[Rfam]
RNA sequence: UUUGCCUUCAGAAUAACUUAACGGCGAAAACAAACGCUGUUUUGUUCAGACAGAGGCGCAAAUCAAAUGUUAAUAAUCUGAAUACGUUUGAGGGUACGGAACACAUCAUCCCCUGUUCCUGACCUAGAUAUAUUCGGAUAUUCACAUUUUA
Dot-bracket structure: ..(((((.(.....(((..(((.(((........))).)))..)))......))))))....................((((((......(((.(..((((((..........))))))..)))).............)))))).......